[Rfam]
Overview: Shown here is a 110-nucleotide RNA sequence from Caballeronia telluris, a member of the family "Burkholderia sRNA Bp1_Cand612_SIPHT".

RNA sequence: AAAAAAAAUGGGCGCAACGCCCAAUUUCUUUUAAACCGAGGUCGCAUCCGGGCGGCUAUGACUAGCUCCACGAAACUGCAUGCCCAGCGACUUUGUGAUUUUAGCCAUUU
Numbered sequence: 001a002a003a004a005a006a007a008a009u010g011g012g013c014g015c016a017a018c019g020c021c022c023a024a025u026u027u028c029u030u031u032u033a034a035a036c037c038g039a040g041g042u043c044g045c046a047u048c049c050g051g052g053c054g055g056c057u058a059u060g061a062c063u064a065g066c067u068c069c070a071c072g073a074a075a076c077u078g079c080a081u082g083c084c085c086a087g088c089g090a091c092u093u094u095g096u097g098a099u100u101u102u103a104g105c106c107a108u109u110u
Stems, first nucleotide, its partner, number of pairs: 009023006039101007050093003055088002
It scores 68 bits against the family's covariance model.
Lineage of the source: Bacteria > Betaproteobacteria > Burkholderiales > Burkholderiaceae > Caballeronia.
Rfam classes the family as a small RNA.